[Rfam]
RNA sequence: UGUCCCUGACUGGGUAGACUGGCACUUGGUUUGGUGGUGCUUGUCUCCUAUCAGCCAAGGACAAAGUAACUCCUUGUUUAUCCCAGCCUGGCUUUUGGUCUGUGCCCAUGCUGGUUCAUCCCCAGGACACAUGG
Numbered sequence: 001u002g003u004c005c006c007u008g009a010c011u012g013g014g015u016a017g018a019c020u021g022g023c024a025c026u027u028g029g030u031u032u033g034g035u036g037g038u039g040c041u042u043g044u045c046u047c048c049u050a051u052c053a054g055c056c057a058a059g060g061a062c063a064a065a066g067u068a069a070c071u072c073c074u075u076g077u078u079u080a081u082c083c084c085a086g087c088c089u090g091g092c093u094u095u096u097g098g099u100c101u102g103u104g105c106c107c108a109u110g111c112u113g114g115u116u117c118a119u120c121c122c123c124a125g126g127a128c129a130c131a132u133g134g
Stems, first nucleotide, its partner, number of pairs: 001063005007057002010054004017047002021041006075129005090122002096118003100114003104111002
Annotation
The record is a 134-nucleotide RNA sequence from Molossus molossus, which matches "Small nucleolar RNA SNORA48" in Rfam. The family has 24 seed sequences and 2,109 matches in Rfam 15.1. The organism belongs to Molossus, within Eukaryota. Its family is annotated with RNA processing and nucleolus in the Gene Ontology. The snoRNA ACA 48 has been identified to guide pseudouridylation of the residue U3797 in the 28S rRNA subunit. By type it is an H/ACA-box small nucleolar RNA.